[Rfam]
RNA sequence: AAGCCACACUCUGUGACAGAUUAUCAAAGCAGUCAGGCACAAUGUGAGCUUGCUCCAGCAAGGAAGUCUAACCUAUUCCAGCACUCUCCCUGCUGUGAGAUAGGCUGUCAUAUAGACUUAAACAGU
Numbered sequence: 001a002a003g004c005c006a007c008a009c010u011c012u013g014u015g016a017c018a019g020a021u022u023a024u025c026a027a028a029g030c031a032g033u034c035a036g037g038c039a040c041a042a043u044g045u046g047a048g049c050u051u052g053c054u055c056c057a058g059c060a061a062g063g064a065a066g067u068c069u070a071a072c073c074u075a076u077u078c079c080a081g082c083a084c085u086c087u088c089c090c091u092g093c094u095g096u097g098a099g100a101u102a103g104g105c106u107g108u109c110a111u112a113u114a115g116a117c118u119u120a121a122a123c124a125g126u
Stems, first nucleotide, its partner, number of pairs: 009048003012041004017036001019034004064119007074112003079107004087100002090097001
Notes
The record is a 126-nucleotide RNA from Octodon degus, which matches "Small nucleolar RNA SNORA28" in Rfam. ACA28 is a member of the H/ACA class of snoRNA that guide the sites of modification of uridines to pseudouridines. On this family, see Huttenhofer et al., EMBO J 2001: "RNomics: an experimental approach that identifies 201 candidates for novel, small, non-messenger RNAs in mouse". By type it is an H/ACA-box small nucleolar RNA. NCBI's taxonomy places the organism under Eukaryota, Bilateria, Sarcopterygii, Rodentia, Octodon. Pairs were carried over by alignment from the consensus structure, which was predicted with RNAfold. It scores 119 bits against the family's covariance model.